[Rfam]
The family of this 100-nucleotide sequence from Wenzhouxiangella sp. XN24 is "c-di-GMP-I riboswitch aptamer". It scores 62 bits against the family's covariance model. The family's consensus secondary structure is taken from published work. Rfam's curators write: GEMM was predicted in a large-scale screen for bacterial structured RNA regulatory elements. Genes associated with GEMM are involved in a diverse array of functions, including chemotaxis regulation, signal transduction, secretion and chitin.
RNA sequence: GCUUGUAAAAGGCAAAGGCGUCGAGAGGCGCCGGCGCAAAGCCACCGGUCUGAGGUUUCCGGUCCUGGUGGGCCGGACUGGCGACAGCGGAGCUGCCGAG
Number, nucleotide and partner (000 for none) at each position: 001g000002c000003u000004u000005g000006u000007a000008a000009a000010a000011g000012g037013c036014a000015a000016a000017g032018g031019c030020g029021u028022c027023g000024a000025g000026a000027g022028g021029c020030g019031c018032c017033g000034g000035c000036g013037c012038a000039a000040a094041g093042c092043c000044a000045c090046c089047g088048g085049u084050c083051u000052g000053a000054g000055g000056u000057u000058u000059c000060c000061g000062g000063u000064c000065c000066u000067g000068g000069u000070g000071g000072g000073c000074c000075g000076g000077a000078c000079u000080g000081g000082c000083g050084a049085c048086a000087g000088c047089g046090g045091a000092g042093c041094u040095g000096c000097c000098g000099a000100g000